RNA: L31-Actinobacteria ribosomal protein leader
RNA sequence: UCGGUCCCGGUUCACGCGAGGACACACCGUCCACGCGACCCGGCACC
Numbered sequence: 001u002c003g004g005u006c007c008c009g010g011u012u013c014a015c016g017c018g019a020g021g022a023c024a025c026a027c028c029g030u031c032c033a034c035g036c037g038a039c040c041c042g043g044c045a046c047c
Stems, first nucleotide, its partner, number of pairs: 003047003007043004015037004020032004